[Rfam]
RNA: Small nucleolar RNA snR60/Z15/Z230/Z193/J17
Organism: Capsella rubella
RNA sequence: AAGGGUCAAGUGAGGAUUAAUAAUGCAUAGUUCAGAUGAUAUAAUCUCCAUGAUUACAAUUCUGUAGCAUAGUCUUUCGCUCCUAUCUGAUGAUCCCU
Numbered sequence: 001a002a003g004g005g006u007c008a009a010g011u012g013a014g015g016a017u018u019a020a021u022a023a024u025g026c027a028u029a030g031u032u033c034a035g036a037u038g039a040u041a042u043a044a045u046c047u048c049c050a051u052g053a054u055u056a057c058a059a060u061u062c063u064g065u066a067g068c069a070u071a072g073u074c075u076u077u078c079g080c081u082c083c084u085a086u087c088u089g090a091u092g093a094u095c096c097c098u
Stems, first nucleotide, its partner, number of pairs: 004095005